[Rfam]
RNA sequence: GAGGUGGGGGUUGAGCACAGAGCGAACUAUUCUUUCGCCUUUUACUAAAGAAUACCGUGCGCUCGGCCCAGUUGAAGCACCAUACUUGGAAUUUUUGGCAAGGGCUUCCUCCUCUGCGAGGCG
Numbered sequence: 001g002a003g004g005u006g007g008g009g010g011u012u013g014a015g016c017a018c019a020g021a022g023c024g025a026a027c028u029a030u031u032c033u034u035u036c037g038c039c040u041u042u043u044a045c046u047a048a049a050g051a052a053u054a055c056c057g058u059g060c061g062c063u064c065g066g067c068c069c070a071g072u073u074g075a076a077g078c079a080c081c082a083u084a085c086u087u088g089g090a091a092u093u094u095u096u097g098g099c100a101a102g103g104g105c106u107u108c109c110u111c112c113u114c115u116g117c118g119a120g121g122c123g
Stems, first nucleotide, its partner, number of pairs: 003081004009068008018059002028054008099123001104122005
Dot-bracket structure: ..((((..((((((((.((........((((((((...........))))))))...)).)))))))).........)))).................(....(((((.........))))))
RNA: U5 spliceosomal RNA